Small nucleolar RNA snoR8a: a 94-nucleotide RNA from Centaurea solstitialis. The family's RNA type in Rfam is C/D-box small nucleolar RNA. Rfam links the family to the GO terms nucleolus and RNA processing.
RNA sequence: UUGGUUGCUGUGAUUAUAAAAAUAAGAACUUUGUUUCUGAAUGCUGUUUUCAUGGCAUGAUAGACUCUCUUACACCCAUAGAAUAUGAGCAACC
Numbered sequence: 001u002u003g004g005u006u007g008c009u010g011u012g013a014u015u016a017u018a019a020a021a022a023u024a025a026g027a028a029c030u031u032u033g034u035u036u037c038u039g040a041a042u043g044c045u046g047u048u049u050u051c052a053u054g055g056c057a058u059g060a061u062a063g064a065c066u067c068u069c070u071u072a073c074a075c076c077c078a079u080a081g082a083a084u085a086u087g088a089g090c091a092a093c094c
Stems, first nucleotide, its partner, number of pairs: 003094002006091002